[Rfam]
RNA sequence: AAAAGAAGAACAAAAGCUAACGUCGCAACGUCCUGUUGCAACGCCUUUGUAACCUGCAUCGUGCAGG
Numbered sequence: 001a002a003a004a005g006a007a008g009a010a011c012a013a014a015a016g017c018u019a020a021c022g023u024c025g026c027a028a029c030g031u032c033c034u035g036u037u038g039c040a041a042c043g044c045c046u047u048u049g050u051a052a053c054c055u056g057c058a059u060c061g062u063g064c065a066g067g
Base pairs, nucleotide, nucleotide: 011049012048013047014046016044017043025039026038027037028036029035053067054066055065056064057063
RNA: Bacillaceae-1 RNA
Organism: Bacillaceae bacterium SAS-127